[Rfam]
This 426-nucleotide part of an RNA from Leucoagaricus sp. SymC.cos belongs to the Rfam family "Eukaryotic large subunit ribosomal RNA". Pairs were carried over by alignment from the consensus structure, which is taken from published work. Its family is annotated with structural constituent of ribosome and ribosome in the Gene Ontology.
RNA sequence: UGACCUCAAAUCAGGUAGGACUACCCGCUGAACUUAAGCAUAUCAAUAAGCGGAGGAAAAGAAACUAACAAGGAUUCCCCUAGUAACUGCGAGUGAAGCGGGAAAAGCUCAAAUUUAAAAUCUGACAGUCUCUGGCUGUCCAAGUUGUAAUUUAGAGAAGUGAUGCCUGUACUGGACUGUGUACAAGUCUCCUGGAAUAGAGCAUCAUAGAGGGUGAGAAUUCCAUCUCUGACACAGACUACCAGGGCUUUGUGGUACGCUCUCAAGAGUCAAGUUGUUUGGGAAUGUAGCUCAAAAUGGGUGGUAAAUUCCAUCUAAAGCUAAAUAUUGGCAAGAGACCAAUAGCAAACAAGUACCGUGAGGGAAAGAUGAAAAGAACUUUGGAAAGAGAGUUAAACAGUACAUGAAAUUGCUGAAAGGGAAACA
Numbered sequence: 001u002g003a004c005c006u007c008a009a010a011u012c013a014g015g016u017a018g019g020a021c022u023a024c025c026c027g028c029u030g031a032a033c034u035u036a037a038g039c040a041u042a043u044c045a046a047u048a049a050g051c052g053g054a055g056g057a058a059a060a061g062a063a064a065c066u067a068a069c070a071a072g073g074a075u076u077c078c079c080c081u082a083g084u085a086a087c088u089g090c091g092a093g094u095g096a097a098g099c100g101g102g103a104a105a106a107g108c109u110c111a112a113a114u115u116u117a118a119a120a121u122c123u124g125a126c127a128g129u130c131u132c133u134g135g136c137u138g139u140c141c142a143a144g145u146u147g148u149a150a151u152u153u154a155g156a157g158a159a160g161u162g163a164u165g166c167c168u169g170u171a172c173u174g175g176a177c178u179g180u181g182u183a184c185a186a187g188u189c190u191c192c193u194g195g196a197a198u199a200g201a202g203c204a205u206c207a208u209a210g211a212g213g214g215u216g217a218g219a220a221u222u223c224c225a226u227c228u229c230u231g232a233c234a235c236a237g238a239c240u241a242c243c244a245g246g247g248c249u250u251u252g253u254g255g256u257a258c259g260c261u262c263u264c265a266a267g268a269g270u271c272a273a274g275u276u277g278u279u280u281g282g283g284a285a286u287g288u289a290g291c292u293c294a295a296a297a298u299g300g301g302u303g304g305u306a307a308a309u310u311c312c313a314u315c316u317a318a319a320g321c322u323a324a325a326u327a328u329u330g331g332c333a334a335g336a337g338a339c340c341a342a343u344a345g346c347a348a349a350c351a352a353g354u355a356c357c358g359u360g361a362g363g364g365a366a367a368g369a370u371g372a373a374a375a376g377a378a379c380u381u382u383g384g385a386a387a388g389a390g391a392g393u394u395a396a397a398c399a400g401u402a403c404a405u406g407a408a409a410u411u412g413c414u415g416a417a418a419g420g421g422a423a424a425c426a
Base pairs, nucleotide, nucleotide: 024055025053026052027051028050029049035042036041065072066071076103077102078101079100086094087093106322107321108320109319112152113151114150115149118146119145121143124140125139126138127137157264158263159261160260161259162258164257165256166255167254169248170247172245173244174243175242177237178236179235180234181233182232187203189202190201191200206210213223214222273292274291275290276289277288278287299316300315301314302313303312356363357362379390380389381388382387
A search with the family's covariance model found it, with a score of 3004 bits.